[Rfam]
About this RNA: The family of this 163-nucleotide sequence from Siminovitchia fortis is "Manganese Mn2+ riboswitch aptamer (yybP-ykoY)".
Nucleotides: 163
Base pairs, nucleotide, nucleotide: 025050026049027048028047029046030045031044052092053091054090055089056088057087058086059085060084061083069082070081071080072079073078098163
Number, partner (000 for none) and nucleotide at each position: 001000c002000u003000u004000a005000u006000a007000g008000u009000c010000a011000a012000a013000g014000g015000g016000g017000a018000g019000u020000a021000g022000c023000a024000u025050c026049a027048a028047g029046u030045g031044a032000g033000c034000u035000u036000u037000a038000u039000u040000g041000g042000g043000c044031u045030c046029a047028u048027u049026u050025g051000a052092a053091a054090c055089a056088a057087a058086g059085u060084c061083g062000u063000c064000a065000a066000u067000u068000c069082g070081u071080g072079a073078a074000g075000a076000a077000a078073u079072u080071c081070a082069c083061c084060g085059g086058c087057u088056u089055u090054g091053u092052u093000g094000g095000c096000a097000u098163g099000a100000a101000c102000a103000u104000g105000u106000c107000c108000a109000g110000c111000a112000a113000g114000a115000c116000c117000u118000u119000u120000g121000c122000c123000c124000a125000u126000c127000g128000g129000g130000c131000a132000a133000g134000g135000g136000u137000c138000u139000u140000u141000u142000u143000g144000a145000u146000u147000u148000u149000c150000c151000g152000a153000u154000a155000a156000a157000g158000g159000c160000u161000g162000c163098c